[Rfam]
RNA sequence: CGGGAGAAGGGUUGUUAAGGAACUCGGCAAGUUGACCCCGUAACUUAGGGAGAAGGGGUGCUCACGAAGGUGAGCCGCAGAGAAUAGGCCCAGGCGACUGUUUAGCAAAAACACAGGUCUCUGCUAAAUCGAAAGAUGACGUAUAGGGGCUGACACCUGCCCGGUGCCGGAAGGUUAAGAGGAGGAGUGAGAGCUCUGAAUUGAAGCCCCGGUAAACGGCGGCCGUAACUAUAACGGUCCUAAGGUAGCGAAAUUCCUUGUCAGGUAAGUUCUGACCCGCACGAAUGGUGUAACGAUCUGGGCACUGUCUCAACAACCCGCCCG
Numbered sequence: 001c002g003g004g005a006g007a008a009g010g011g012u013u014g015u016u017a018a019g020g021a022a023c024u025c026g027g028c029a030a031g032u033u034g035a036c037c038c039c040g041u042a043a044c045u046u047a048g049g050g051a052g053a054a055g056g057g058g059u060g061c062u063c064a065c066g067a068a069g070g071u072g073a074g075c076c077g078c079a080g081a082g083a084a085u086a087g088g089c090c091c092a093g094g095c096g097a098c099u100g101u102u103u104a105g106c107a108a109a110a111a112c113a114c115a116g117g118u119c120u121c122u123g124c125u126a127a128a129u130c131g132a133a134a135g136a137u138g139a140c141g142u143a144u145a146g147g148g149g150c151u152g153a154c155a156c157c158u159g160c161c162c163g164g165u166g167c168c169g170g171a172a173g174g175u176u177a178a179g180a181g182g183a184g185g186a187g188u189g190a191g192a193g194c195u196c197u198g199a200a201u202u203g204a205a206g207c208c209c210c211g212g213u214a215a216a217c218g219g220c221g222g223c224c225g226u227a228a229c230u231a232u233a234a235c236g237g238u239c240c241u242a243a244g245g246u247a248g249c250g251a252a253a254u255u256c257c258u259u260g261u262c263a264g265g266u267a268a269g270u271u272c273u274g275a276c277c278c279g280c281a282c283g284a285a286u287g288g289u290g291u292a293a294c295g296a297u298c299u300g301g302g303c304a305c306u307g308u309c310u311c312a313a314c315a316a317c318c319c320g321c322c323c324g
Stems, first nucleotide, its partner, number of pairs: 001324004009319008018310003035059005044049001060075006076080001088303007095295002099113003116151008124141001128137003154290004159220003164217002166213005173208003179202002184197005221239006240244001250277001260276006